[Rfam]
RNA sequence: CUGCAUGUAAAACCAAGAGCUGUGGUUCAGUGAAAUAGCCACAGGGUCUCCAACUACAUGCAAGAAAAAAGGGAGAGACUUUGACAGCUAAGCCUCUGGUGCCUAUGGCUGACACUCGCCUCUCCUAUAAGC
Numbered sequence: 001c002u003g004c005a006u007g008u009a010a011a012a013c014c015a016a017g018a019g020c021u022g023u024g025g026u027u028c029a030g031u032g033a034a035a036u037a038g039c040c041a042c043a044g045g046g047u048c049u050c051c052a053a054c055u056a057c058a059u060g061c062a063a064g065a066a067a068a069a070a071g072g073g074a075g076a077g078a079c080u081u082u083g084a085c086a087g088c089u090a091a092g093c094c095u096c097u098g099g100u101g102c103c104u105a106u107g108g109c110u111g112a113c114a115c116u117c118g119c120c121u122c123u124c125c126u127a128u129a130a131g132c
Stems, first nucleotide, its partner, number of pairs: 013044001019039005072125006088111001089105002092102001
A member of the RNA family "Small nucleolar RNA SNORA44" from Pelusios castaneus, 132 nucleotides long.
NCBI's taxonomy places the organism under Eukaryota, Deuterostomia, Vertebrata, Testudinata, Pelusios.
Rfam 15.1 lists 1,056 matches to the family in 599 species.
ACA44 is a member of the H/ACA class of snoRNA that guide the sites of modification of uridines to pseudouridines.
On this family, see Huttenhofer et al., EMBO J 2001: "RNomics: an experimental approach that identifies 201 candidates for novel, small, non-messenger RNAs in mouse".
Rfam classes the family as an H/ACA-box small nucleolar RNA.